RNA: Group I catalytic intron
Organism: Plenodomus lingam
RNA sequence: AUAAGGUUGUAUAGGCUUGAGUAAUCUAUAUAAGCAGCCUAAAGUGAAAGUGAACCUUUUGCUAUAAAUUUUCAAAUUGACGGGAAAGCCCUAAAGAAAUUUCAACCAAGUAAGUAUGGUAACAUAACUUAUGGCACAGGUAAUGACUCGUGGUAUGGUAAAAUCGAAAUUUAUGAACGAAAGGAAAUGGGUAAUCCGCAGCCAAGCAGCAUAAUAAUUUUAGGCCCCUCCUCAAAAGAGGGGGGUCCAAACAGAUUAUUAUGGUGUGCAGUUCAUCGACUAAAUGUGAGUUGGCACUAAUAAAUAGUGCUUAAGAUAUAGUCAAGCCUCACUCGAAAGAGUGCA
Numbered sequence: 001a002u003a004a005g006g007u008u009g010u011a012u013a014g015g016c017u018u019g020a021g022u023a024a025u026c027u028a029u030a031u032a033a034g035c036a037g038c039c040u041a042a043a044g045u046g047a048a049a050g051u052g053a054a055c056c057u058u059u060u061g062c063u064a065u066a067a068a069u070u071u072u073c074a075a076a077u078u079g080a081c082g083g084g085a086a087a088g089c090c091c092u093a094a095a096g097a098a099a100u101u102u103c104a105a106c107c108a109a110g111u112a113a114g115u116a117u118g119g120u121a122a123c124a125u126a127a128c129u130u131a132u133g134g135c136a137c138a139g140g141u142a143a144u145g146a147c148u149c150g151u152g153g154u155a156u157g158g159u160a161a162a163a164u165c166g167a168a169a170u171u172u173a174u175g176a177a178c179g180a181a182a183g184g185a186a187a188u189g190g191g192u193a194a195u196c197c198g199c200a201g202c203c204a205a206g207c208a209g210c211a212u213a214a215u216a217a218u219u220u221u222a223g224g225c226c227c228c229u230c231c232u233c234a235a236a237a238g239a240g241g242g243g244g245g246u247c248c249a250a251a252c253a254g255a256u257u258a259u260u261a262u263g264g265u266g267u268g269c270a271g272u273u274c275a276u277c278g279a280c281u282a283a284a285u286g287u288g289a290g291u292u293g294g295c296a297c298u299a300a301u302a303a304a305u306a307g308u309g310c311u312u313a314a315g316a317u318a319u320a321g322u323c324a325a326g327c328c329u330c331a332c333u334c335g336a337a338a339g340a341g342u343g344c345a
Stems, first nucleotide, its partner, number of pairs: 001007002019026002067292005073286002078200002081198004089191003201272002206267003213260008276324001278323005294310004301306001330343005